[Rfam]
RNA: Nuclear RNase P
Organism: Sordaria macrospora
RNA sequence: GUCCCCUUCAACGCUGCGUUUCUAUGCUACCGACGGAGAGUCUUGCCUCAGCAUUUCUUUCACCCAUGGCAUAUGAGAAAUUCGGAGAAAUCGCUUCACUUCAAUCACCCCUCUGAUCGCGUCAGGGUGGGCUCACUUCGGUGGUCUCGCUUGACAAGAUUAUGGCAAUGCUGCCGGCAACGGCCUCGCGCCACACCGCGUGUGUAAUUGGCAUCAGAAAAGCAGGCUUCUUUCCUGCGCGCGCUAAGACAAGCUGGUGUGUAAGUCGUCCUCUGGGAGAGCCAUUACGAAGCUUGUGGGUAGAACCACUUGAGUGCAAUACGCAGCGUGCAGUGUCCGUCUUCUCUGGGAGACAGACCUGUACAAUCCGAUUCCGAUUACUUUGUUGAGGAC
Dot-bracket structure: ((((....((..(((((((...((((.........(((((................)))))........)))).........[[[[[.....((((............................................................................((((....))))..(((((......)))))....(.((((...........(((...........................................)))........)))).)...))))...........................)))))))((((((.........................)))))).......]]]]].......))....))))
Numbered sequence: 001g002u003c004c005c006c007u008u009c010a011a012c013g014c015u016g017c018g019u020u021u022c023u024a025u026g027c028u029a030c031c032g033a034c035g036g037a038g039a040g041u042c043u044u045g046c047c048u049c050a051g052c053a054u055u056u057c058u059u060u061c062a063c064c065c066a067u068g069g070c071a072u073a074u075g076a077g078a079a080a081u082u083c084g085g086a087g088a089a090a091u092c093g094c095u096u097c098a099c100u101u102c103a104a105u106c107a108c109c110c111c112u113c114u115g116a117u118c119g120c121g122u123c124a125g126g127g128u129g130g131g132c133u134c135a136c137u138u139c140g141g142u143g144g145u146c147u148c149g150c151u152u153g154a155c156a157a158g159a160u161u162a163u164g165g166c167a168a169u170g171c172u173g174c175c176g177g178c179a180a181c182g183g184c185c186u187c188g189c190g191c192c193a194c195a196c197c198g199c200g201u202g203u204g205u206a207a208u209u210g211g212c213a214u215c216a217g218a219a220a221a222g223c224a225g226g227c228u229u230c231u232u233u234c235c236u237g238c239g240c241g242c243g244c245u246a247a248g249a250c251a252a253g254c255u256g257g258u259g260u261g262u263a264a265g266u267c268g269u270c271c272u273c274u275g276g277g278a279g280a281g282c283c284a285u286u287a288c289g290a291a292g293c294u295u296g297u298g299g300g301u302a303g304a305a306c307c308a309c310u311u312g313a314g315u316g317c318a319a320u321a322c323g324c325a326g327c328g329u330g331c332a333g334u335g336u337c338c339g340u341c342u343u344c345u346c347u348g349g350g351a352g353a354c355a356g357a358c359c360u361g362u363a364c365a366a367u368c369c370g371a372u373u374c375c376g377a378u379u380a381c382u383u384u385g386u387u388g389a390g391g392a393c
Stems, first nucleotide, its partner, number of pairs: 001393004009385002013327007023073004036061005083376005093293004173184004187202005207286001209284004224272003328364006